[Rfam]
A member of the RNA family "MIR8643 microRNA precursor family" from Gossypium armourianum, 149 nucleotides long.
RNA sequence: AUUUCUUUUAACAUAUCAGGAAGUCGAAUUGGCAGUGAAGAAAGAAGCAGAAAGUUGAAAGCCAUCAUUGCCUACAACCAAAACCCAUAAACUCAUACCAUGCUUUUUUCUUCACUGUCAAUUUGACUUCCUGAUAUGUUAAAAGAAAU
Numbered sequence: 001a002u003u004u005c006u007u008u009u010a011a012c013a014u015a016u017c018a019g020g021a022a023g024u025c026g027a028a029u030u031g032g033c034a035g036u037g038a039a040g041a042a043a044g045a046a047g048c049a050g051a052a053a054g055u056u057g058a059a060a061g062c063c064a065u066c067a068u069u070g071c072c073u074a075c076a077a078c079c080a081a082a083a084c085c086c087a088u089a090a091a092c093u094c095a096u097a098c099c100a101u102g103c104u105u106u107u108u109u110c111u112u113c114a115c116u117g118u119c120a121a122u123u124u125g126a127c128u129u130c131c132u133g134a135u136a137u138g139u140u141a142a143a144a145g146a147a148a149u
Stems, first nucleotide, its partner, number of pairs: 004146015020130012033117014048102002056095002
The match comes from Rfam's covariance-model search (154 bits).
The source organism's lineage runs through Eukaryota, Spermatophyta, Magnoliopsida, Gunneridae and Gossypium.
The family has 2 seed sequences and 522 matches in Rfam 15.1.